[Rfam]
RNA sequence: CAUUACCGAAGAGGUCGCUGGAUUCAUCAGUAUCGGACGCGAGGCGAAACGGAGCCUGCGACCGCCCGCGAAAGGGGAUCCAGCCGAAAUCCCCGACGCCCGUGCACCGUCGGAGGUUGGGCGCGGGGCGAACAGGUUCGCGACUGUCGCGGCCAGCCGGCCGCGGAGCGCUGACGAUAAGA
Numbered sequence: 001c002a003u004u005a006c007c008g009a010a011g012a013g014g015u016c017g018c019u020g021g022a023u024u025c026a027u028c029a030g031u032a033u034c035g036g037a038c039g040c041g042a043g044g045c046g047a048a049a050c051g052g053a054g055c056c057u058g059c060g061a062c063c064g065c066c067c068g069c070g071a072a073a074g075g076g077g078a079u080c081c082a083g084c085c086g087a088a089a090u091c092c093c094c095g096a097c098g099c100c101c102g103u104g105c106a107c108c109g110u111c112g113g114a115g116g117u118u119g120g121g122c123g124c125g126g127g128g129c130g131a132a133c134a135g136g137u138u139c140g141c142g143a144c145u146g147u148c149g150c151g152g153c154c155a156g157c158c159g160g161c162c163g164c165g166g167a168g169c170g171c172u173g174a175c176g177a178u179a180a181g182a
Stems, first nucleotide, its partner, number of pairs: 007176002010172002017084009034068003038064002088118004093113006119145002122142006129135001147166007

The family of this 182-nucleotide sequence from Bifidobacterium bohemicum is "Lysine riboswitch aptamer". Taxonomically the source falls in Bifidobacterium bohemicum (Bacteria, Bacillati, Actinomycetes, Bifidobacteriales). The base pairs follow the family's consensus structure, which is taken from published work.